[Rfam]
RNA sequence: UGACCCGUCCCGCAAGGGGCGCCAGGCCGAACGGACAGCCGGGUCAAAUGCCGA
Numbered sequence: 001u002g003a004c005c006c007g008u009c010c011c012g013c014a015a016g017g018g019g020c021g022c023c024a025g026g027c028c029g030a031a032c033g034g035a036c037a038g039c040c041g042g043g044u045c046a047a048a049u050g051c052c053g054a
Base pairs, nucleotide, nucleotide: 001046002045003044004043005042006021007020008019009018010017011016
A member of the RNA family "Streptococcus sRNA SpF59 (ldcC RNA)", 54 nucleotides long. Rfam classes the family as a small RNA.